Background:
Rfam assigns this 49-nucleotide RNA sequence from Tibeticola sediminis to the family "L17-Actino-Proteobacteria ribosomal protein leader". The match comes from Rfam's covariance-model search (35 bits). It is annotated as a cis-regulatory leader.

RNA sequence: CGUCCGGGCCGUAGGCCCGGGCGCGUCGCGGUACCUGAUACGGCCGCGG
Numbered sequence: 001c002g003u004c005c006g007g008g009c010c011g012u013a014g015g016c017c018c019g020g021g022c023g024c025g026u027c028g029c030g031g032u033a034c035c036u037g038a039u040a041c042g043g044c045c046g047c048g049g
Base pairs, nucleotide, nucleotide: 001023002022003021004020005019006018007017008016009015027048028047029046030045031044032043